Shown here is a 37-nucleotide RNA sequence from Geobacter metallireducens, a member of the family "CRISPR RNA direct repeat element".
RNA sequence: GUAGCGCCCGCCUACAUAGGCGGGCGAGGAUUGAAAC
Number, nucleotide and partner (000 for none) at each position: 001g000002u000003a000004g000005c026006g025007c024008c023009c022010g021011c020012c019013u018014a000015c000016a000017u000018a013019g012020g011021c010022g009023g008024g007025c006026g005027a000028g000029g000030a000031u000032u000033g000034a000035a000036a000037c000
The base pairs follow the family's consensus structure, which was predicted with WAR.